This 61-nucleotide RNA sequence from Sarcophilus harrisii belongs to the Rfam family "mir-7398 microRNA precursor family". The family's consensus secondary structure was predicted with RNAalifold. The match comes from Rfam's covariance-model search (65 bits).
RNA sequence: UGUGUAGAGGUGUGAAACGUGCUGUGUUCUGUGUACUGGUAAAUUUCUUGCCUCUCACAGU
Numbered sequence: 001u002g003u004g005u006a007g008a009g010g011u012g013u014g015a016a017a018c019g020u021g022c023u024g025u026g027u028u029c030u031g032u033g034u035a036c037u038g039g040u041a042a043a044u045u046u047c048u049u050g051c052c053u054c055u056c057a058c059a060g061u
Stems, first nucleotide, its partner, number of pairs: 002058003006055007014047004021040003
Dot-bracket structure: .(((.(((((((.((((...(((..............)))...)))).))))))))))...